[Rfam]
RNA sequence: GACCUCCCAGUGCUUAACCGCAGGCUGUGUUCUUACACUGCCUGCACAGAAAGAGGAGGCAGAGUAAACUCACCCCAUAUACACCUCAGCCCAGGCCCUUUGCCUGGUCAGUAUUGUGAAUGGCCAGAUUG
Numbered sequence: 001g002a003c004c005u006c007c008c009a010g011u012g013c014u015u016a017a018c019c020g021c022a023g024g025c026u027g028u029g030u031u032c033u034u035a036c037a038c039u040g041c042c043u044g045c046a047c048a049g050a051a052a053g054a055g056g057a058g059g060c061a062g063a064g065u066a067a068a069c070u071c072a073c074c075c076c077a078u079a080u081a082c083a084c085c086u087c088a089g090c091c092c093a094g095g096c097c098c099u100u101u102g103c104c105u106g107g108u109c110a111g112u113a114u115u116g117u118g119a120a121u122g123g124c125c126a127g128a129u130u131g
Stems, first nucleotide, its partner, number of pairs: 003059005021044003027038004075123004087111001089109001091107006
RNA: Small nucleolar RNA SNORA51
Organism: Myotis lucifugus